[Rfam]
RNA sequence: UGCGGGAUGCCGAAGUCGGGUCCCGCGGUGAAACACUUGCUGAUUAUUCAGGAGACGCAACAUGAGC
Numbered sequence: 001u002g003c004g005g006g007a008u009g010c011c012g013a014a015g016u017c018g019g020g021u022c023c024c025g026c027g028g029u030g031a032a033a034c035a036c037u038u039g040c041u042g043a044u045u046a047u048u049c050a051g052g053a054g055a056c057g058c059a060a061c062a063u064g065a066g067c
Stems, first nucleotide, its partner, number of pairs: 001027008010019003036054003040051004
The family of this 67-nucleotide RNA is "Repression of heat shock gene expression (ROSE) element". By type it is an RNA thermoregulator. Rfam links the family to the GO terms regulation of translation and response to temperature stimulus. Pairs were carried over by alignment from the consensus structure.